[Rfam]
RNA sequence: UCAAAGGGUGAUUGUCCAAACGCAAUUCUUGUGUUUGGCAGAUCUCCCUGCAGGAGUUGUGGAUGGACAUCACACCUUUGG
Numbered sequence: 001u002c003a004a005a006g007g008g009u010g011a012u013u014g015u016c017c018a019a020a021c022g023c024a025a026u027u028c029u030u031g032u033g034u035u036u037g038g039c040a041g042a043u044c045u046c047c048c049u050g051c052a053g054g055a056g057u058u059g060u061g062g063a064u065g066g067a068c069a070u071c072a073c074a075c076c077u078u079u080g081g
Stems, first nucleotide, its partner, number of pairs: 002080006009072004014068005021061011

The family of this 81-nucleotide RNA sequence from Clupea harengus is "mir-219 microRNA precursor family". The family's consensus secondary structure was predicted with RNAalifold. A reference for the family is Lim et al. (2003), "Vertebrate microRNA genes", Science.